[Rfam]
This 94-nucleotide sequence from Anopheles stephensi belongs to the Rfam family "drz-agam-1 ribozyme".
It scores 40 bits against the family's covariance model.
Its family is annotated with catalytic activity in the Gene Ontology.
A reference for the family is Webb et al. (2009), "Widespread occurrence of self-cleaving ribozymes", Science.
RNA sequence: CGCUUUAGAACUUCGAUUUCAACCCUCCUCGUGGUGCUGGCUGGAGGAUAAUUGUUGCACAUUUUACACAACAAUUAUUCACUGAUUGAGACGG
Numbered sequence: 001c002g003c004u005u006u007a008g009a010a011c012u013u014c015g016a017u018u019u020c021a022a023c024c025c026u027c028c029u030c031g032u033g034g035u036g037c038u039g040g041c042u043g044g045a046g047g048a049u050a051a052u053u054g055u056u057g058c059a060c061a062u063u064u065u066a067c068a069c070a071a072c073a074a075u076u077a078u079u080c081a082c083u084g085a086u087u088g089a090g091a092c093g094g
Base pairs, nucleotide, nucleotide: 013094014093015092017090018089019088021086022035023034024033047080048079050076051075052074053073054072055071056070057069